Small nucleolar RNA SNORA47: a 125-nucleotide RNA from Amazona aestiva. Its family is annotated with nucleolus and RNA processing in the Gene Ontology.
RNA sequence: UGGAGGACUGAGAAGGUAAGACAGACUUCAUACUGUACUUUACUGGUUAUAGCCUCCAACAUUAUAAUAGUGCAAUGGCAACUCAUGUUCCCCUCCUGACAUGAGGGAAGGCAGUACUGCAUUUG
Numbered sequence: 001u002g003g004a005g006g007a008c009u010g011a012g013a014a015g016g017u018a019a020g021a022c023a024g025a026c027u028u029c030a031u032a033c034u035g036u037a038c039u040u041u042a043c044u045g046g047u048u049a050u051a052g053c054c055u056c057c058a059a060c061a062u063u064a065u066a067a068u069a070g071u072g073c074a075a076u077g078g079c080a081a082c083u084c085a086u087g088u089u090c091c092c093c094u095c096c097u098g099a100c101a102u103g104a105g106g107g108a109a110g111g112c113a114g115u116a117c118u119g120c121a122u123u124u125g
Stems, first nucleotide, its partner, number of pairs: 002057005015044004021036004079125001086119002093114002095111003100107001
Annotation:
It is annotated as an H/ACA-box small nucleolar RNA. A search with the family's covariance model found it, with a score of 69 bits. Pairs were carried over by alignment from the consensus structure, which was predicted with WAR.